[Rfam]
RNA sequence: GCCGAGCUGAGUUACGCCAGCUUAUGACCCAAGUGGGGGCUGUGAGUGAUUGGAAUGAAUUGGUUGGAUUUAAAGGCGUGGAUCAUCUUUGCGAUUGUCGGUCUGCCCGUUCCAAGUUGAUGGUGGGCCGGAAGAGUUGUGCGAAGGCUCGAUUUGACCGGUUCUUAAAGAGGAGGGUACUGGGCCAGGCUAGUUUCACAGAGCAGUCAUUUCCCAUCCUCCUUCAACAGAGGAAGGACAACAGAUCGGUGUUCAAUUUGCCCACAAGGUUCCUCUAGAUCCGAUCCAAUUCUAACUAAUCCUUUU
Numbered sequence: 001g002c003c004g005a006g007c008u009g010a011g012u013u014a015c016g017c018c019a020g021c022u023u024a025u026g027a028c029c030c031a032a033g034u035g036g037g038g039g040c041u042g043u044g045a046g047u048g049a050u051u052g053g054a055a056u057g058a059a060u061u062g063g064u065u066g067g068a069u070u071u072a073a074a075g076g077c078g079u080g081g082a083u084c085a086u087c088u089u090u091g092c093g094a095u096u097g098u099c100g101g102u103c104u105g106c107c108c109g110u111u112c113c114a115a116g117u118u119g120a121u122g123g124u125g126g127g128c129c130g131g132a133a134g135a136g137u138u139g140u141g142c143g144a145a146g147g148c149u150c151g152a153u154u155u156g157a158c159c160g161g162u163u164c165u166u167a168a169a170g171a172g173g174a175g176g177g178u179a180c181u182g183g184g185c186c187a188g189g190c191u192a193g194u195u196u197c198a199c200a201g202a203g204c205a206g207u208c209a210u211u212u213c214c215c216a217u218c219c220u221c222c223u224u225c226a227a228c229a230g231a232g233g234a235a236g237g238a239c240a241a242c243a244g245a246u247c248g249g250u251g252u253u254c255a256a257u258u259u260g261c262c263c264a265c266a267a268g269g270u271u272c273c274u275c276u277a278g279a280u281c282c283g284a285u286c287c288a289a290u291u292c293u294a295a296c297u298a299a300u301c302c303u304u305u306u
Stems, first nucleotide, its partner, number of pairs: 001040003004023006028037003044305003048301006057292001059290003062286011074274003078265004083260001085258001089256003092251002098249008107237002110235004116228005122222002125164007134155006141148002165170001172218002175214003183208003190201002

Background
This 306-nucleotide RNA from Zingiber officinale belongs to the Rfam family "Plant signal recognition particle RNA". Lineage of the source: Eukaryota > Euphyllophyta > Liliopsida > Zingiberales > Zingiber. It scores 161 bits against the family's covariance model.